[Rfam]
This 104-nucleotide sequence from Takifugu flavidus belongs to the Rfam family "mir-454 microRNA precursor family".
Its family is annotated with RISC complex and miRNA-mediated post-transcriptional gene silencing in the Gene Ontology.
Taxonomically the source falls in Takifugu (Eukaryota, Ctenosquamata, Tetraodontiformes, Tetraodontoidei).
A search with the family's covariance model found it, with a score of 72 bits.
RNA sequence: UCCCUGUGGCCUUACUGGUGAGACCCUAUCAAUGUUGCCUCUGCUUUCACAUGUGUUCACUCAGUAGUGCAAUAUUGCUUAUAGGGUCUUGCCUCUGAGGGCAG
Number, nucleotide and partner (000 for none) at each position: 001u000002c000003c000004c000005u000006g000007u000008g000009g000010c000011c000012u000013u000014a000015c000016u000017g000018g000019u000020g090021a089022g088023a087024c086025c085026c084027u083028a082029u081030c077031a076032a075033u074034g073035u072036u071037g070038c069039c000040u000041c067042u066043g065044c064045u063046u000047u000048c000049a000050c000051a000052u000053g000054u000055g000056u000057u000058c000059a000060c000061u000062c000063a045064g044065u043066a042067g041068u000069g038070c037071a036072a035073u034074a033075u032076u031077g030078c000079u000080u000081a029082u028083a027084g026085g025086g024087u023088c022089u021090u020091g000092c000093c000094u000095c000096u000097g000098a000099g000100g000101g000102c000103a000104g000